Small nucleolar RNA Z247: a 141-nucleotide sequence from Cucurbita maxima. For this family Rfam cites "The high diversity of snoRNAs in plants: identification and comparative study of 120 snoRNA genes from Oryza sativa" (Chen et al., Nucleic Acids Res, 2003). It is annotated as a C/D-box small nucleolar RNA. Taxonomically the source falls in Cucurbita (Eukaryota, Streptophytina, Pentapetalae, Cucurbiteae). Rfam 15.1 lists 7,071 matches to the family in 142 species. The base pairs follow the family's consensus structure, which was predicted with PFOLD.
RNA sequence: AUCUUGCGGGAUGAUGACGUGAUUGCGUAUCUCCUCGUUGGUCUUAGCGCUGACUAUAAUCCCUUCGUCACCUCGAUAAAUACCAAGAGUGAAAGCCCUCACACUUGAUGAUGUGUCUGCACAUCUAAUGGCGUUCGAAGC
Numbered sequence: 001a002u003c004u005u006g007c008g009g010g011a012u013g014a015u016g017a018c019g020u021g022a023u024u025g026c027g028u029a030u031c032u033c034c035u036c037g038u039u040g041g042u043c044u045u046a047g048c049g050c051u052g053a054c055u056a057u058a059a060u061c062c063c064u065u066c067g068u069c070a071c072c073u074c075g076a077u078a079a080a081u082a083c084c085a086a087g088a089g090u091g092a093a094a095g096c097c098c099u100c101a102c103a104c105u106u107g108a109u110g111a112u113g114u115g116u117c118u119g120c121a122c123a124u125c126u127a128a129u130g131g132c133g134u135u136c137g138a139a140g141c
Stems, first nucleotide, its partner, number of pairs: 004140002007137002089109002092106002